[Rfam]
RNA sequence: UGGCAGUUACAUGACUGGCGGAAGAAAUGUGGAGUAUACCACAGAGGAUUGUAACUGUUGUAAAGCCGACCGCCUGGGCAAUUCAC
Numbered sequence: 001u002g003g004c005a006g007u008u009a010c011a012u013g014a015c016u017g018g019c020g021g022a023a024g025a026a027a028u029g030u031g032g033a034g035u036a037u038a039c040c041a042c043a044g045a046g047g048a049u050u051g052u053a054a055c056u057g058u059u060g061u062a063a064a065g066c067c068g069a070c071c072g073c074c075u076g077g078g079c080a081a082u083u084c085a086c
Base pairs, nucleotide, nucleotide: 003058004057005056006055007054008053009052010051011050015046016045017074018073019072020071021070029042030041031040032039065079066078067077
RNA: ZMP/ZTP riboswitch aptamer (pfl RNA motif)
Organism: Desulforamulus ruminis